[Rfam]
RNA sequence: AAAAAGGUUUGAGAAGCCUUUUGGCCAAUUUGUUAGAGUGAACCUCUAGCUACAAAUCCUCAAAUUGCGGGAACACCCUAAAGCAAUUUCAACCAAACGAGAAGUAACUAUCUCGUGGCGCAGGUAAUGACUCGCGGUAUGGUAAAAUCGAAAUUGAUGCACGAAAGGAAAUGGGUUAUCCGCAGCCAAGCUUCUCUUCCCGACCUUUUACAGGGUAAGGAGUGCAGUUCAUCGACUAGAAGUGGAUUGGCGCAAGCUUAAGAUAUAGUCAAACCUCACCUGAAAGGGUGCA
Numbered sequence: 001a002a003a004a005a006g007g008u009u010u011g012a013g014a015a016g017c018c019u020u021u022u023g024g025c026c027a028a029u030u031u032g033u034u035a036g037a038g039u040g041a042a043c044c045u046c047u048a049g050c051u052a053c054a055a056a057u058c059c060u061c062a063a064a065u066u067g068c069g070g071g072a073a074c075a076c077c078c079u080a081a082a083g084c085a086a087u088u089u090c091a092a093c094c095a096a097a098c099g100a101g102a103a104g105u106a107a108c109u110a111u112c113u114c115g116u117g118g119c120g121c122a123g124g125u126a127a128u129g130a131c132u133c134g135c136g137g138u139a140u141g142g143u144a145a146a147a148u149c150g151a152a153a154u155u156g157a158u159g160c161a162c163g164a165a166a167g168g169a170a171a172u173g174g175g176u177u178a179u180c181c182g183c184a185g186c187c188a189a190g191c192u193u194c195u196c197u198u199c200c201c202g203a204c205c206u207u208u209u210a211c212a213g214g215g216u217a218a219g220g221a222g223u224g225c226a227g228u229u230c231a232u233c234g235a236c237u238a239g240a241a242g243u244g245g246a247u248u249g250g251c252g253c254a255a256g257c258u259u260a261a262g263a264u265a266u267a268g269u270c271a272a273a274c275c276u277c278a279c280c281u282g283a284a285a286g287g288g289u290g291c292a
Base pairs, nucleotide, nucleotide: 005031006030007029008028009027011025035045036044055248056247057246058245059244061242066184067183068182069181070180071179076175077174078173185228186227190223191222192221193220199215200214201213232271234270235269236268237267238266250257251256277290278289279288280287281286